[Rfam]
RNA sequence: CAGAGAAUAGUUUAAUAUAAAAUACCAGCUUUGGGAGUUGGAGAUAGAGGUUUAAAUCCUUUUUUUCUGA
Numbered sequence: 001c002a003g004a005g006a007a008u009a010g011u012u013u014a015a016u017a018u019a020a021a022a023u024a025c026c027a028g029c030u031u032u033g034g035g036a037g038u039u040g041g042a043g044a045u046a047g048a049g050g051u052u053u054a055a056a057u058c059c060u061u062u063u064u065u066u067c068u069g070a
Stems, first nucleotide, its partner, number of pairs: 001069007010023004025041005046062005